A member of the RNA family "MIR6274 microRNA precursor family" from Prunus avium, 107 nucleotides long. Lineage of the source: Eukaryota > Streptophytina > Mesangiospermae > rosids > Prunus. Pairs were carried over by alignment from the consensus structure, which was predicted with RNAalifold. A search with the family's covariance model found it, with a score of 86 bits.
RNA sequence: GGAUAACACUUUUUGCUAUCUCCGGCCAAUGACGCAAUGACAUGUGAGAUAAUUUUUCCACAUGUCAUUGUGUUAUUGGUUGAGGAUAGCAAAAUAAUACUAUAUCC
Numbered sequence: 001g002g003a004u005a006a007c008a009c010u011u012u013u014u015g016c017u018a019u020c021u022c023c024g025g026c027c028a029a030u031g032a033c034g035c036a037a038u039g040a041c042a043u044g045u046g047a048g049a050u051a052a053u054u055u056u057u058c059c060a061c062a063u064g065u066c067a068u069u070g071u072g073u074u075a076u077u078g079g080u081u082g083a084g085g086a087u088a089g090c091a092a093a094a095u096a097a098u099a100c101u102a103u104a105u106c107c
Base pairs, nucleotide, nucleotide: 002106003105004104005103011094012093013092014091015090016089017088018087019086021084023082024081025080026079027078028077029076030075031074032073033072034071035070036069037068038067039066040065041064042063043062044061045060046059048057049056